U5 spliceosomal RNA: a 118-nucleotide RNA from Gossypium raimondii. The match comes from Rfam's covariance-model search (93 bits). Taxonomically the source falls in Gossypium (Eukaryota, Tracheophyta, rosids, malvids). The family's consensus secondary structure is taken from published work. Its family is annotated with U5 snRNP and spliceosomal tri-snRNP complex assembly in the Gene Ontology.
RNA sequence: AGCCGUGUGAUGAGCACAGAGCGAACUAUUCUUUCGCCUUUUACUAAAGAAUACCGUGUGCUCGUCACUAUAAGCGGCAUACGCCAAUUUUUGGAAGGGUAUUCCUAGUUGAAUGCCC
Numbered sequence: 001a002g003c004c005g006u007g008u009g010a011u012g013a014g015c016a017c018a019g020a021g022c023g024a025a026c027u028a029u030u031c032u033u034u035c036g037c038c039u040u041u042u043a044c045u046a047a048a049g050a051a052u053a054c055c056g057u058g059u060g061c062u063c064g065u066c067a068c069u070a071u072a073a074g075c076g077g078c079a080u081a082c083g084c085c086a087a088u089u090u091u092u093g094g095a096a097g098g099g100u101a102u103u104c105c106u107a108g109u110u111g112a113a114u115g116c117c118c
Stems, first nucleotide, its partner, number of pairs: 003077004008067011027053008097118006
Dot-bracket structure: ..((((.(((((((((((........((((((((...........))))))))...)))))))))))......))))...................((((((..........))))))